[Rfam]
RNA sequence: CAGACCGAGAGGCGCUGCAACGGGCCGAGGCCCGCCACGCUCGGCCUGCACCACGAUCGCGAAGGGCGCCUCCCGACA
Numbered sequence: 001c002a003g004a005c006c007g008a009g010a011g012g013c014g015c016u017g018c019a020a021c022g023g024g025c026c027g028a029g030g031c032c033c034g035c036c037a038c039g040c041u042c043g044g045c046c047u048g049c050a051c052c053a054c055g056a057u058c059g060c061g062a063a064g065g066g067c068g069c070c071u072c073c074c075g076a077c078a
Base pairs, nucleotide, nucleotide: 002047003046005044006043007042008041021034022033023032024031025030